[Rfam]
The record is a 116-nucleotide RNA sequence from Ceratopteris richardii, which matches "U5 spliceosomal RNA" in Rfam. The match comes from Rfam's covariance-model search (44 bits). The family's consensus secondary structure is taken from published work. Rfam classes the family as a spliceosomal small nuclear RNA. Lineage of the source: Eukaryota > Streptophyta > Streptophytina > Polypodiopsida > Ceratopteris.

RNA sequence: AGGUGCAGGUUAAACACAGAGCAAACUAUUCUUUUGCUUUUAGUAAAGCAUAUCGUGUGCUUGGCCCAUUAGAGCACCAUACCCUUGAUUUUAUAAGUAUAGAUCCUUGCUUUUCU
Dot-bracket structure: ..((((.((((((.((((........(((.((((..........)))).)))...)))).)))))).......)))).................(.(.(.((.......)).).))